[Rfam]
RNA sequence: AGAUAACACUUUUUGCUAUCCUCGGCCAAUAAUGCAAUGAUACGUAAGAUAACUUUUCUACGUGUCAUUGUGUUAUUGGCCGGGGAUAGCAAAACAGUGAUAUCC
Numbered sequence: 001a002g003a004u005a006a007c008a009c010u011u012u013u014u015g016c017u018a019u020c021c022u023c024g025g026c027c028a029a030u031a032a033u034g035c036a037a038u039g040a041u042a043c044g045u046a047a048g049a050u051a052a053c054u055u056u057u058c059u060a061c062g063u064g065u066c067a068u069u070g071u072g073u074u075a076u077u078g079g080c081c082g083g084g085g086a087u088a089g090c091a092a093a094a095c096a097g098u099g100a101u102a103u104c105c
Base pairs, nucleotide, nucleotide: 002104003103004102005101011094012093013092014091015090016089017088018087019086021084022083023082024081025080026079027078028077029076030075031074032073033072034071035070036069037068038067039066040065041064042063043062044061045060046059048057049056
RNA: MIR6274 microRNA precursor family